The record is a 473-nucleotide RNA sequence from Pseudanabaenococcus habilitatus, which matches "Bacterial RNase P class A" in Rfam. It scores 236 bits against the family's covariance model.
[Rfam]
RNA sequence: AGAGUAGGCGUAGGUGGUUGCGGAGACUUAAAAAAUCUCUGAGGAAAGUCCGGGCUUCCACAGAAUCAAACUGCUGGAUAAUACCCAGUGUGAGCGAUCGCGAGGAAAGUGCCACAGAAAAAUACCGCCUUGAUCAUAAUUUAUUAAGUAUUCAGGAUACUAAACCUAUUGCUAAAUAUUUAAAUCAGAUUAUGCUAAAGGUAAGGGUGCAAAGGUGUGUUAAGAGCGCACCAGCAAAGUCGAGAGGCUUUGGCUCGGUAAACCCCAGUUGGAAGCAAGGCGAGAGGAAUAAGCUAUAACUGAUUCUGGUCGGCUUUUCCGUUGUUAACUCCAGAGUUAGCGUGAGCCGCUUGAGGUGGUUGGUAACAGCCAUCCUAGAUAGAUAACUACCUGUGAAAAGUUAAACUACAGUUCAAACUAUAGUAAAUUCAAACAUUUCAUAAACAGAACCCGGCUUAUGUCCUGCUCUUCUU
Number, nucleotide and partner (000 for none) at each position: 001a469002g468003a467004g466005u465006a464007g463008g462009c000010g000011u000012a459013g391014g390015u389016g388017g387018u386019u385020g000021c041022g040023g039024a038025g037026a036027c000028u034029u033030a000031a000032a000033a029034a028035a000036u026037c025038u024039c023040u022041g021042a000043g000044g000045a000046a457047a456048g455049u000050c454051c453052g452053g451054g450055c275056u274057u273058c272059c000060a000061c000062a000063g000064a000065a000066u000067c000068a000069a270070a269071c268072u267073g266074c088075u087076g086077g085078a000079u000080a000081a000082u000083a000084c000085c077086c076087a075088g074089u103090g101091u100092g099093a098094g000095c000096g000097a000098u093099c092100g091101c090102g000103a089104g265105g264106a000107a000108a000109g263110u262111g259112c258113c257114a000115c000116a000117g000118a000119a000120a000121a000122a000123u000124a000125c206126c205127g202128c201129c200130u199131u198132g000133a196134u000135c194136a193137u192138a191139a190140u189141u188142u187143a000144u000145u000146a000147a000148g000149u000150a000151u000152u000153c000154a000155g000156g000157a000158u000159a000160c000161u000162a000163a000164a000165c000166c000167u000168a000169u000170u000171g000172c000173u000174a000175a000176a000177u000178a000179u000180u000181u000182a000183a000184a000185u000186c000187a142188g141189a140190u139191u138192a137193u136194g135195c000196u133197a000198a131199a130200g129201g128202u127203a000204a000205g126206g125207g000208u000209g000210c000211a000212a000213a000214g232215g231216u230217g229218u228219g227220u000221u000222a000223a000224g000225a000226g000227c219228g218229c217230a216231c215232c214233a000234g254235c252236a251237a250238a249239g248240u247241c246242g000243a000244g000245a000246g241247g240248c239249u238250u237251u236252g235253g000254c234255u000256c000257g113258g112259u111260a000261a000262a110263c109264c105265c104266c073267a072268g071269u070270u069271g000272g058273a057274a056275g055276c000277a000278a000279g348280g347281c346282g000283a000284g000285a000286g000287g000288a000289a000290u000291a000292a000293g000294c000295u000296a000297u000298a000299a000300c000301u000302g000303a000304u000305u000306c000307u000308g000309g000310u000311c000312g000313g000314c000315u000316u000317u000318u000319c000320c000321g000322u000323u000324g000325u000326u000327a000328a000329c000330u000331c000332c000333a000334g000335a000336g000337u000338u000339a000340g000341c000342g000343u000344g000345a000346g281347c280348c279349g000350c000351u000352u000353g000354a000355g374356g373357u372358g371359g370360u369361u368362g367363g000364u000365a000366a000367c362368a361369g360370c359371c358372a357373u356374c355375c000376u000377a000378g000379a000380u000381a000382g000383a000384u000385a019386a018387c017388u016389a015390c014391c013392u000393g000394u000395g000396a000397a000398a000399a000400g000401u000402u000403a000404a000405a000406c000407u000408a000409c000410a000411g000412u000413u000414c000415a000416a000417a000418c000419u000420a000421u000422a000423g000424u000425a000426a000427a000428u000429u000430c000431a000432a000433a000434c000435a000436u000437u000438u000439c000440a000441u000442a000443a000444a000445c000446a000447g000448a000449a000450c054451c053452c052453g051454g050455c048456u047457u046458a000459u012460g000461u000462c008463c007464u006465g005466c004467u003468c002469u001470u000471c000472u000473u000